[Rfam]
RNA sequence: AAAAUUUUCUGACUUCUAUAUCGCUGUAUCUCAUCGUCAUUCCUACCUCGAUCUUUUACCUCGGCCAGUUUCGCCGGGGUUUUU
Numbered sequence: 001a002a003a004a005u006u007u008u009c010u011g012a013c014u015u016c017u018a019u020a021u022c023g024c025u026g027u028a029u030c031u032c033a034u035c036g037u038c039a040u041u042c043c044u045a046c047c048u049c050g051a052u053c054u055u056u057u058a059c060c061u062c063g064g065c066c067a068g069u070u071u072c073g074c075c076g077g078g079g080u081u082u083u084u
Stems, first nucleotide, its partner, number of pairs: 058080008
RNA: Photosynthesis regulatory RNA1
Organism: Amazonocrinis nigriterrae